[Rfam]
RNA sequence: AUCGCUUCUGGCCUUUGGCUAAGAUCAAGUAUCUGUUCUUAUCAGUUUAUAUCUGAUACGUCCUCUAUCCGAGGAUAUAUUAAAUGGGAUUUUGGAGCAGGGAGAUGGAAGGAGCUUGCUCCGUCCACUCCACGCAUCGACCUGGUAUUGCAGUACCUCCAGGAACGGUGCACCACCU
Numbered sequence: 001a002u003c004g005c006u007u008c009u010g011g012c013c014u015u016u017g018g019c020u021a022a023g024a025u026c027a028a029g030u031a032u033c034u035g036u037u038c039u040u041a042u043c044a045g046u047u048u049a050u051a052u053c054u055g056a057u058a059c060g061u062c063c064u065c066u067a068u069c070c071g072a073g074g075a076u077a078u079a080u081u082a083a084a085u086g087g088g089a090u091u092u093u094g095g096a097g098c099a100g101g102g103a104g105a106u107g108g109a110a111g112g113a114g115c116u117u118g119c120u121c122c123g124u125c126c127a128c129u130c131c132a133c134g135c136a137u138c139g140a141c142c143u144g145g146u147a148u149u150g151c152a153g154u155a156c157c158u159c160c161a162g163g164a165a166c167g168g169u170g171c172a173c174c175a176c177c178u
Stems, first nucleotide, its partner, number of pairs: 007024003010020004040058006060076006101131004107125002111122004134171006141163005
RNA: U2 spliceosomal RNA
Organism: Macaca fascicularis